[Rfam]
RNA sequence: GAGUGGGGCAGCUCUGCUAGAAUUUGUCGGGUAGGUUUUCUGUUUCCUGGAAGACCCCA
Numbered sequence: 001g002a003g004u005g006g007g008g009c010a011g012c013u014c015u016g017c018u019a020g021a022a023u024u025u026g027u028c029g030g031g032u033a034g035g036u037u038u039u040c041u042g043u044u045u046c047c048u049g050g051a052a053g054a055c056c057c058c059a
Stems, first nucleotide, its partner, number of pairs: 034056008

U7 small nuclear RNA: a 59-nucleotide RNA from Molossus molossus.
Rfam's curators write: Animal histone pre-mRNAs are spliced by a different mechanism than nuclear pre-mRNAs and self-splicing introns.
The base pairs follow the family's consensus structure, which was predicted with PFOLD.
The literature on the family includes a 1994 paper in Nucleic Acids Res by Spycher et al., "3' end processing of mouse histone pre-mRNA: evidence for additional base-pairing between U7 snRNA and pre-mRNA".
It scores 35 bits against the family's covariance model.